[Rfam]
This 96-nucleotide RNA sequence from Shewanella benthica belongs to the Rfam family "Group II catalytic intron D1-D4-1".
RNA sequence: CGCAUGACGGGGCAACUCGGCAUGUGAUUAAGCAGAAGUCAGCAGACGGCAUAGUAGCCAAAUGCCCAUCGUAAUGGUUGGGACAGGGUGAAGGCC
Dot-bracket structure: ((.(((.((((....)))).))).))...........(((....)))(((......(((.....(((............)))....)))....)))
Rfam describes the family as follows. Group II introns are found in rRNA, tRNA and mRNA of organelles in fungi, plants and protists, and also in mRNA in bacteria. It is one of the family's seed sequences. The base pairs follow the family's consensus structure.